[Rfam]
RNA sequence: UGGGUGGUAUUUGAAGGAAACCAUACCAGAUAAUGAAUUGAAUUUUUAGAUAGUUUAUAUCUUAAACAGAAAGGGACUAGUAU
Numbered sequence: 001u002g003g004g005u006g007g008u009a010u011u012u013g014a015a016g017g018a019a020a021c022c023a024u025a026c027c028a029g030a031u032a033a034u035g036a037a038u039u040g041a042a043u044u045u046u047u048a049g050a051u052a053g054u055u056u057a058u059a060u061c062u063u064a065a066a067c068a069g070a071a072a073g074g075g076a077c078u079a080g081u082a083u
Stems, first nucleotide, its partner, number of pairs: 001028003004024005010019002051079003054075003058071001060070003

pan motif: an 83-nucleotide sequence from Clostridium sp. DSM 8431.
It scores 41 bits against the family's covariance model.
It is annotated as a cis-regulatory element.